[Rfam]
RNA sequence: AGGUUAUGGGGAAACGAUGAACCCCUCGCAUUUCCGAAAACGGGCGCAAGAGCGAAGGGUGAGUGAGUAGCGCGACCGGCCCCUUGGAGU
Numbered sequence: 001a002g003g004u005u006a007u008g009g010g011g012a013a014a015c016g017a018u019g020a021a022c023c024c025c026u027c028g029c030a031u032u033u034c035c036g037a038a039a040a041c042g043g044g045c046g047c048a049a050g051a052g053c054g055a056a057g058g059g060u061g062a063g064u065g066a067g068u069a070g071c072g073c074g075a076c077c078g079g080c081c082c083c084u085u086g087g088a089g090u
Stems, first nucleotide, its partner, number of pairs: 001090001004087003008083004014064002022059003026055004042077002044073004
The family of this 90-nucleotide RNA sequence from Acetomicrobium mobile is "c-di-GMP-II-GAG riboswitch aptamer". The literature on the family includes a 2017 paper in Proc Natl Acad Sci U S A by Weinberg et al., "Bioinformatic analysis of riboswitch structures uncovers variant classes with altered ligand specificity". Its family is annotated with cyclic-di-GMP binding and regulation of gene expression in the Gene Ontology.